Shown here is a 94-nucleotide RNA sequence from Ensete ventricosum, a member of the family "mir-166 microRNA precursor family". From the family's description: This family represents the plant microRNA (miRNA) precursor mir-166. For this family Rfam cites "MicroRNAs in plants" (Reinhart et al., Genes Dev, 2002). NCBI's taxonomy places the organism under Eukaryota, Euphyllophyta, Zingiberales, Musaceae, Ensete.
[Rfam]
RNA sequence: UUUGAGGGGAAUGUUGUCUGGCACGAGGCCAUCAUCCAUCGUUUCUUUUGCAGAUCCAUGUGAAGGUCUCGGACCAGGCUUCAUUCCCCCCAGU
Dot-bracket structure: .(((.((((((((..((((((..(((..........................................)))..))))))..)))))))).))).
Numbered sequence: 001u002u003u004g005a006g007g008g009g010a011a012u013g014u015u016g017u018c019u020g021g022c023a024c025g026a027g028g029c030c031a032u033c034a035u036c037c038a039u040c041g042u043u044u045c046u047u048u049u050g051c052a053g054a055u056c057c058a059u060g061u062g063a064a065g066g067u068c069u070c071g072g073a074c075c076a077g078g079c080u081u082c083a084u085u086c087c088c089c090c091c092a093g094u
Stems, first nucleotide, its partner, number of pairs: 002093003006089008016079006024071003